Annotation:
This 46-nucleotide RNA from Streptomyces sp. WMMB 714 belongs to the Rfam family "L31-Actinobacteria ribosomal protein leader". It is annotated as a cis-regulatory leader.

RNA sequence: UCGGCUCCGGUUCACGGAAGGCAAUCCGCCCUUCCGACCCGGCGCC
Numbered sequence: 001u002c003g004g005c006u007c008c009g010g011u012u013c014a015c016g017g018a019a020g021g022c023a024a025u026c027c028g029c030c031c032u033u034c035c036g037a038c039c040c041g042g043c044g045c046c
Stems, first nucleotide, its partner, number of pairs: 003046003007042004015036007022028001